[Rfam]
This 104-nucleotide RNA sequence from Legionella longbeachae belongs to the Rfam family "traJ-II RNA". By type it is a cis-regulatory element. Rfam 15.1 lists 174 matches to the family in 172 species. The family's consensus secondary structure is taken from published work.
RNA sequence: GGGCAAGAUAGGUGAAGUUAGCUAACCAGCAAGCUGGCUACCAAACCUCACGAGUCUUAUUCGCACCUUCGGUGCUCAACGAAAAAACUGAGUUUUGAGAUCAA
Numbered sequence: 001g002g003g004c005a006a007g008a009u010a011g012g013u014g015a016a017g018u019u020a021g022c023u024a025a026c027c028a029g030c031a032a033g034c035u036g037g038c039u040a041c042c043a044a045a046c047c048u049c050a051c052g053a054g055u056c057u058u059a060u061u062c063g064c065a066c067c068u069u070c071g072g073u074g075c076u077c078a079a080c081g082a083a084a085a086a087a088c089u090g091a092g093u094u095u096u097g098a099g100a101u102c103a104a
Stems, first nucleotide, its partner, number of pairs: 001095004006089002009086001012051004017046001019044001021042001024039001026037004055082002063075005